[Rfam]
RNA sequence: GGUUUCCUUUGGUAUAAAUCCAAUCAUCUUAACUAGAGAUGAAAAACAACUCCCGUUGGUAGCAAAUGGUUAUCCAUUAAGCGGGGGAAUGGAAU
Numbered sequence: 001g002g003u004u005u006c007c008u009u010u011g012g013u014a015u016a017a018a019u020c021c022a023a024u025c026a027u028c029u030u031a032a033c034u035a036g037a038g039a040u041g042a043a044a045a046a047c048a049a050c051u052c053c054c055g056u057u058g059g060u061a062g063c064a065a066a067u068g069g070u071u072a073u074c075c076a077u078u079a080a081g082c083g084g085g086g087g088a089a090u091g092g093a094a095u
Base pairs, nucleotide, nucleotide: 009023010022011021012020053084054083055077056076058074059073060072061071062070063069